Rfam assigns this 77-nucleotide RNA from Amphiprion percula to the family "Small nucleolar RNA SNORD66". For this family Rfam cites "RNomics: an experimental approach that identifies 201 candidates for novel, small, non-messenger RNAs in mouse" (Huttenhofer et al., EMBO J, 2001). Rfam classes the family as a C/D-box small nucleolar RNA.

[Rfam]
RNA sequence: CUCCAGUGAUGACUUCUGUUUUGUGCCACGUGUCUGGGCCACUGAAUGAUCAUGAUGGUAUUGAGGAACUGAAGGAG
Numbered sequence: 001c002u003c004c005a006g007u008g009a010u011g012a013c014u015u016c017u018g019u020u021u022u023g024u025g026c027c028a029c030g031u032g033u034c035u036g037g038g039c040c041a042c043u044g045a046a047u048g049a050u051c052a053u054g055a056u057g058g059u060a061u062u063g064a065g066g067a068a069c070u071g072a073a074g075g076a077g
Stems, first nucleotide, its partner, number of pairs: 001077004
NCBI's taxonomy places the organism under Eukaryota, Opisthokonta, Vertebrata, Ovalentaria, Amphiprion. From the family's description: snoRNA HBII-142 is part of the C/D family of snoRNAs. It scores 90 bits against the family's covariance model. The family has 20 seed sequences and 1,346 matches in Rfam 15.1.